[Rfam]
A member of the RNA family "IMES-3 RNA motif", 146 nucleotides long. For this family Rfam cites "Exceptional structured noncoding RNAs revealed by bacterial metagenome analysis" (Weinberg et al., Nature, 2009). Rfam classes the family as a non-coding RNA gene.
RNA sequence: AGGAUAAACACUGGGGGGUAUUAGAAGUUAAGAAAAUUGUAGGCGCUUUAGCAUUUACAGUCUUCGAAUACGGACAAAACCAACCCCAGAAGCAUAGAGUUCAGAUCGUCCACAACCUUACGGUUGGAUCGGAGCUUGAAGUUGGG
Numbered sequence: 001a002g003g004a005u006a007a008a009c010a011c012u013g014g015g016g017g018g019u020a021u022u023a024g025a026a027g028u029u030a031a032g033a034a035a036a037u038u039g040u041a042g043g044c045g046c047u048u049u050a051g052c053a054u055u056u057a058c059a060g061u062c063u064u065c066g067a068a069u070a071c072g073g074a075c076a077a078a079a080c081c082a083a084c085c086c087c088a089g090a091a092g093c094a095u096a097g098a099g100u101u102c103a104g105a106u107c108g109u110c111c112a113c114a115a116c117c118u119u120a121c122g123g124u125u126g127g128a129u130c131g132g133a134g135c136u137u138g139a140a141g142u143u144g145g146g
Base pairs, nucleotide, nucleotide: 011089012088013087014086015085016084017081018080019079027071028070029068032065033064034063036061038059039058040057041056042055045052046051098136099135100134101133102132104130105129106128107127113126114125115124116123117122